[Rfam]
RNA sequence: UUCACCCGCAGCAACCGCACGGUGUUCCUGUCGGUGCUCGGCAUCUCCUGGUUCUGGUUCUACGGCGCGCUGUUCCUGUCGCAGUUCCCCGGCUAUGCCAAGACCGUGCUC
Numbered sequence: 001u002u003c004a005c006c007c008g009c010a011g012c013a014a015c016c017g018c019a020c021g022g023u024g025u026u027c028c029u030g031u032c033g034g035u036g037c038u039c040g041g042c043a044u045c046u047c048c049u050g051g052u053u054c055u056g057g058u059u060c061u062a063c064g065g066c067g068c069g070c071u072g073u074u075c076c077u078g079u080c081g082c083a084g085u086u087c088c089c090c091g092g093c094u095a096u097g098c099c100a101a102g103a104c105c106g107u108g109c110u111c
Stems, first nucleotide, its partner, number of pairs: 001036001003033001006030001008028001010026004015021001040110005048102002051099001054092001056088002060084002063081005069076001
RNA: Burkholderia RNA 11
Organism: Denitromonas iodatirespirans